This 67-nucleotide RNA sequence from Cavia porcellus belongs to the Rfam family "tRNA". A search with the family's covariance model found it, with a score of 45 bits.

[Rfam]
RNA sequence: GGUAAGAUGGCCGAGUAGGCAUUAGACUGUAAAUCUAAGCACAGAGUUUGAAACCCUCUUCUUAUCA
Number, nucleotide and partner (000 for none) at each position: 001g066002g065003u064004a063005a062006g061007a060008u000009g000010g020011c019012c018013g000014a000015g000016u000017a000018g012019g011020c010021a000022u038023u037024a036025g035026a034027c000028u000029g000030u000031a000032a000033a000034u026035c025036u024037a023038a022039g000040c000041a000042c000043a059044g058045a057046g056047u000048u000049u000050g000051a000052a000053a000054c000055c000056c046057u045058c044059u043060u007061c006062u005063u004064a003065u002066c001067a000
Taxonomically the source falls in Cavia (Eukaryota, Eumetazoa, Euteleostomi, Hystricomorpha). Pairs were carried over by alignment from the consensus structure, which is taken from published work. Rfam classes the family as a transfer RNA. Rfam's curators write: Transfer RNA (tRNA) molecules are approximately 80 nucleotides in length.